The family of this 63-nucleotide RNA from Oryza meridionalis is "MIR2907 microRNA precursor family". Its family is annotated with miRNA-mediated post-transcriptional gene silencing and RISC complex in the Gene Ontology. Taxonomically the source falls in Oryza (Eukaryota, Viridiplantae, Tracheophyta, Oryzoideae).
RNA sequence: GCGCUUCUCCCUCCGCCCACUCGGCCGCCACGUGGAAUCCGAGUGAGGGCCUCGGGGCAGCAC
Numbered sequence: 001g002c003g004c005u006u007c008u009c010c011c012u013c014c015g016c017c018c019a020c021u022c023g024g025c026c027g028c029c030a031c032g033u034g035g036a037a038u039c040c041g042a043g044u045g046a047g048g049g050c051c052u053c054g055g056g057g058c059a060g061c062a063c
Base pairs, nucleotide, nucleotide: 001061002060005057006056007055008054015050016049017048018047020043021042022041023040024039028035029034